RNA sequence: AAAUGAGUACAGGGGUGCCUGCGGGCUGAGAGGGAGAAUUCCCAACCCUUAGAACCUGAACUGGCUGAUACCAGCGAAGGGAGUACGGCUGCUGCUUGA
Numbered sequence: 001a002a003a004u005g006a007g008u009a010c011a012g013g014g015g016u017g018c019c020u021g022c023g024g025g026c027u028g029a030g031a032g033g034g035a036g037a038a039u040u041c042c043c044a045a046c047c048c049u050u051a052g053a054a055c056c057u058g059a060a061c062u063g064g065c066u067g068a069u070a071c072c073a074g075c076g077a078a079g080g081g082a083g084u085a086c087g088g089c090u091g092c093u094g095c096u097u098g099a
Base pairs, nucleotide, nucleotide: 007086008085009084010083011049012048013047014046017026018025019024033042034041035040055080056079057078061074062073063072064071
RNA: TPP riboswitch aptamer (THI element)
Organism: Melghirimyces thermohalophilus